[Rfam]
RNA sequence: UCCGCAAUGUGCAGAAUACGCGCCCUGUAAAAAUGAUGAUUAGCCGACGUUUAUUUCACGUCGGUUAUUUUUUUGC
Numbered sequence: 001u002c003c004g005c006a007a008u009g010u011g012c013a014g015a016a017u018a019c020g021c022g023c024c025c026u027g028u029a030a031a032a033a034u035g036a037u038g039a040u041u042a043g044c045c046g047a048c049g050u051u052u053a054u055u056u057c058a059c060g061u062c063g064g065u066u067a068u069u070u071u072u073u074u075g076c
Base pairs, nucleotide, nucleotide: 011021012020041067042066043065044064045063046062047061048060049059
RNA: Enterobacterial sRNA STnc240